[Rfam]
RNA sequence: UUGUUUUCCGUGGGAGAGCGAGGCAGCCACACCGGGCCGGCCUCCGCCGAAGGCGCAAACUCCCAUAAUCGCUCAGGCACCCAGCACCACGGAACACAC
Dot-bracket structure: .....((((((((......((((.................)))).(((((..(((...(......)...))))).)))........)))))))).....
Numbered sequence: 001u002u003g004u005u006u007u008c009c010g011u012g013g014g015a016g017a018g019c020g021a022g023g024c025a026g027c028c029a030c031a032c033c034g035g036g037c038c039g040g041c042c043u044c045c046g047c048c049g050a051a052g053g054c055g056c057a058a059a060c061u062c063c064c065a066u067a068a069u070c071g072c073u074c075a076g077g078c079a080c081c082c083a084g085c086a087c088c089a090c091g092g093a094a095c096a097c098a099c
Stems, first nucleotide, its partner, number of pairs: 006094008020044004046078003049074002053072003059066001

Glycine riboswitch aptamer: a 99-nucleotide RNA sequence from Comamonas aquatica. A search with the family's covariance model found it, with a score of 56 bits.